[Rfam]
RNA: Archaeal large subunit ribosomal RNA, nucleotides 584 to 680
Organism: uncultured marine crenarchaeote KM3-153-F8
Nucleotides: 097
Stems, first nucleotide, its partner, number of pairs: 001079010015068002024061006032053001036049005082097004
Number, partner (000 for none) and nucleotide at each position: 001079u002078g003077u004076a005075u006074u007073g008072c009071u010070u011000g012000a013000a014000a015068g016067g017000a018000a019000c020000a021000u022000u023000u024061g025060u026059a027058g028057a029056u030000u031000a032053u033000g034000a035000u036049u037048a038047u039046u040045c041000g042000u043000a044000a045040g046039a047038a048037u049036a050000u051000u052000c053032a054000u055000a056029g057028u058027u059026u060025a061024c062000c063000c064000g065000u066000u067016c068015u069000a070010g071009a072008g073007u074006g075005a076004u077003a078002u079001a080000u081000u082097c083096c084095g085094u086000c087000u088000a089000g090000a091000a092000a093000c094085a095084c096083g097082g